The record is a 91-nucleotide RNA sequence from Thioclava pacifica, which matches "Glycine riboswitch aptamer" in Rfam.
Rfam describes the family as follows. This family represents the bacterial glycine riboswitch.
RNA sequence: AUGUCGGAUACGGGAGAAUCUGGGGGAAACCCCGGUGCCGAAGGAGCAACCGCCCCGGUAAACUCUCAGGCAAAAGGACCGCAUCCGGCCA
Numbered sequence: 001a002u003g004u005c006g007g008a009u010a011c012g013g014g015a016g017a018a019u020c021u022g023g024g025g026g027a028a029a030c031c032c033c034g035g036u037g038c039c040g041a042a043g044g045a046g047c048a049a050c051c052g053c054c055c056c057g058g059u060a061a062a063c064u065c066u067c068a069g070g071c072a073a074a075a076g077g078a079c080c081g082c083a084u085c086c087g088g089c090c091a
Base pairs, nucleotide, nucleotide: 006086007085008084009083011081012080013079020035021034022033023032037071038070039069040067041066044065045064046063050058051057